[Rfam]
RNA: Small Cajal body specific RNA 6
RNA sequence: GGUCAAUGAUGACAUAAAAGGUCUGAUUACCCACAAUCCCCUCCUGCUGCCCUCUGGCUCCCAGCAGCCCCUGCUCUGUAUCCCAUCAUGCUCUAGUGGUGCAGUGGUGGUCCCAGGAGCUGCUGACAGACAGGAUGUGACAUCACAGUGAGUCUGUACAGAGAUCCUACGGCUCUGUGUGAUGUCAUCCAACAGAACCAAUAAGCAUGGAGCGUCAGGCUGAGGAGGAGGAGGAGGGAGCUGAUCUCAAGUUUUUCAACCUGAGACC
Numbered sequence: 001g002g003u004c005a006a007u008g009a010u011g012a013c014a015u016a017a018a019a020g021g022u023c024u025g026a027u028u029a030c031c032c033a034c035a036a037u038c039c040c041c042u043c044c045u046g047c048u049g050c051c052c053u054c055u056g057g058c059u060c061c062c063a064g065c066a067g068c069c070c071c072u073g074c075u076c077u078g079u080a081u082c083c084c085a086u087c088a089u090g091c092u093c094u095a096g097u098g099g100u101g102c103a104g105u106g107g108u109g110g111u112c113c114c115a116g117g118a119g120c121u122g123c124u125g126a127c128a129g130a131c132a133g134g135a136u137g138u139g140a141c142a143u144c145a146c147a148g149u150g151a152g153u154c155u156g157u158a159c160a161g162a163g164a165u166c167c168u169a170c171g172g173c174u175c176u177g178u179g180u181g182a183u184g185u186c187a188u189c190c191a192a193c194a195g196a197a198c199c200a201a202u203a204a205g206c207a208u209g210g211a212g213c214g215u216c217a218g219g220c221u222g223a224g225g226a227g228g229a230g231g232a233g234g235a236g237g238g239a240g241c242u243g244a245u246c247u248c249a250a251g252u253u254u255u256u257c258a259a260c261c262u263g264a265g266a267c268c
Base pairs, nucleotide, nucleotide: 001268002267003266004265033247035245037243040231041230042229043228044227045226047224058212059211060210061209062125063124064123065122066121067120068119083110084109085108086107087106088105089104091101133190134189135188138187139186140185141184150175151174152173154172155171156170157169158168